[Rfam]
Description: Rfam assigns this 88-nucleotide RNA sequence from Desulfuribacillus stibiiarsenatis to the family "SAM riboswitch aptamer (S box leader)".
RNA sequence: AUCUUAUCGAGAGUAGGUGGAGGGACUGGCCCUAUGAAGCCCGGCAACCGGCAGAAUGCUGCACGGUGCCAAUUCCUGUAGAUGAGAA
Numbered sequence: 001a002u003c004u005u006a007u008c009g010a011g012a013g014u015a016g017g018u019g020g021a022g023g024g025a026c027u028g029g030c031c032c033u034a035u036g037a038a039g040c041c042c043g044g045c046a047a048c049c050g051g052c053a054g055a056a057u058g059c060u061g062c063a064c065g066g067u068g069c070c071a072a073u074u075c076c077u078g079u080a081g082a083u084g085a086g087a088a
Stems, first nucleotide, its partner, number of pairs: 002087007013042001016041003022032003026078001028076002043070004048066002051062004074080001